[Rfam]
RNA sequence: GGGGAAAGGCUUAGAAUCCCCGCGAAAUAGCUGUGUGAAUAGCGGCGUCUUUGGCCGGACGAAGCGGUUCGUGAAUC
Numbered sequence: 001g002g003g004g005a006a007a008g009g010c011u012u013a014g015a016a017u018c019c020c021c022g023c024g025a026a027a028u029a030g031c032u033g034u035g036u037g038a039a040u041a042g043c044g045g046c047g048u049c050u051u052u053g054g055c056c057g058g059a060c061g062a063a064g065c066g067g068u069u070c071g072u073g074a075a076u077c
Stems, first nucleotide, its partner, number of pairs: 001021005036071005042065002046061005
L13-Bacteroidia ribosomal protein leader: a 77-nucleotide RNA.
The family's RNA type in Rfam is cis-regulatory leader.
The family's consensus secondary structure is taken from published work.
Rfam's curators put it in the seed alignment.
On this family, see Eckert and Weinberg, BMC Microbiol 2020: "Discovery of 20 novel ribosomal leader candidates in bacteria and archaea".